Shown here is a 369-nucleotide RNA from Yoonia tamlensis, a member of the family "Bacterial RNase P class A". Pairs were carried over by alignment from the consensus structure, which is taken from published work. A search with the family's covariance model found it, with a score of 289 bits.

[Rfam]
RNA sequence: GCGGAUGGCUGGAUGGCUGCGGGCGGUAACGUCCGAGGAAAGUCCGGACUCCAAAAAGCACGGUGCCGGGUAACGCCCGGCGGGGGUAACCCUAGGGAUAGCGCCACAGAGAACAGACUGCUCUGCAUGCAGAGUGAUGGUGAAACGGUGGGGUAAGAGCCCACCGCGCGAGCGGUAACGCAAGCGGCACGGCAAGCCCCACCGGGAGCAAUGCCAAAUAGGGACUGCGCGCCGCAAGGCAGGGGGGCUUGAGCCCGAGCAGUCCGGGUUGGCAGCUAGAGGCCGUCUGGCAACAGGCGGUCAAGAUGAAUGGUCAUCCAUUUGGGGCAACCCAAAGGACAAAAUCCGGCUUAUAGGCCGUCCGCGCAU
Numbered sequence: 001g002c003g004g005a006u007g008g009c010u011g012g013a014u015g016g017c018u019g020c021g022g023g024c025g026g027u028a029a030c031g032u033c034c035g036a037g038g039a040a041a042g043u044c045c046g047g048a049c050u051c052c053a054a055a056a057a058g059c060a061c062g063g064u065g066c067c068g069g070g071u072a073a074c075g076c077c078c079g080g081c082g083g084g085g086g087u088a089a090c091c092c093u094a095g096g097g098a099u100a101g102c103g104c105c106a107c108a109g110a111g112a113a114c115a116g117a118c119u120g121c122u123c124u125g126c127a128u129g130c131a132g133a134g135u136g137a138u139g140g141u142g143a144a145a146c147g148g149u150g151g152g153g154u155a156a157g158a159g160c161c162c163a164c165c166g167c168g169c170g171a172g173c174g175g176u177a178a179c180g181c182a183a184g185c186g187g188c189a190c191g192g193c194a195a196g197c198c199c200c201a202c203c204g205g206g207a208g209c210a211a212u213g214c215c216a217a218a219u220a221g222g223g224a225c226u227g228c229g230c231g232c233c234g235c236a237a238g239g240c241a242g243g244g245g246g247g248c249u250u251g252a253g254c255c256c257g258a259g260c261a262g263u264c265c266g267g268g269u270u271g272g273c274a275g276c277u278a279g280a281g282g283c284c285g286u287c288u289g290g291c292a293a294c295a296g297g298c299g300g301u302c303a304a305g306a307u308g309a310a311u312g313g314u315c316a317u318c319c320a321u322u323u324g325g326g327g328c329a330a331c332c333c334a335a336a337g338g339a340c341a342a343a344a345u346c347c348g349g350c351u352u353a354u355a356g357g358c359c360g361u362c363c364g365c366g367c368a369u
Base pairs, nucleotide, nucleotide: 001365002364003363004362005361006360007359008358009357010356011354012318013317014316015315016314017313018312020035021034022033023032024031025030040352041351042350044349045348046347047346048345049208050207051206052205056250057249058248059247061204062203063202064201065200066080067079068078069077070076081095082093083092084091085090096199097198101197102196103193104192105191118139120135121134122133123132124131125130147165148164149163150162151161152160166188167186168185169184172181173180174179212274213273214272215271222265223264224263225262226261227260244255245254282301283300284299285298286297287296288295289294
Dot-bracket structure: ((((((((((((((((((.((((((....))))))....[[[.[[[[[((((...[[[[.((((((((((.....)))))(((((....)))).)((...(((((............(.((((((....))))))...).......((((((.......))))))((((..(((....)))..))).)..)))..)))))))))))))...((((......((((((................((.]]]]...))....)))))).....)))).......((((((((....))))))))..........)))))))..........................]]]]]]]].).))))))))))....